[Rfam]
RNA: speF leader
Organism: Allobosea sp. OK403
RNA sequence: CGCUGGUCCUCCAAAGACCAGCACCGAAGAGGCUUGUCCUUCAUUGCCGGGCGUGCGGGGUCUCCCCAAGCGACGGUUAUCAGAGUCCGAACUUAGUUGUUCGGCUGUUCUUGGCGUCUCCAUCGCGCCUUGAAUCGCCGACGGCUU
Numbered sequence: 001c002g003c004u005g006g007u008c009c010u011c012c013a014a015a016g017a018c019c020a021g022c023a024c025c026g027a028a029g030a031g032g033c034u035u036g037u038c039c040u041u042c043a044u045u046g047c048c049g050g051g052c053g054u055g056c057g058g059g060g061u062c063u064c065c066c067c068a069a070g071c072g073a074c075g076g077u078u079a080u081c082a083g084a085g086u087c088c089g090a091a092c093u094u095a096g097u098u099g100u101u102c103g104g105c106u107g108u109u110c111u112u113g114g115c116g117u118c119u120c121c122a123u124c125g126c127g128c129c130u131u132g133a134a135u136c137g138c139c140g141a142c143g144g145c146u147u
Base pairs, nucleotide, nucleotide: 002022003021004020005019006018007017008016031048032047033046055128056127057126075087076086095111096110099109101107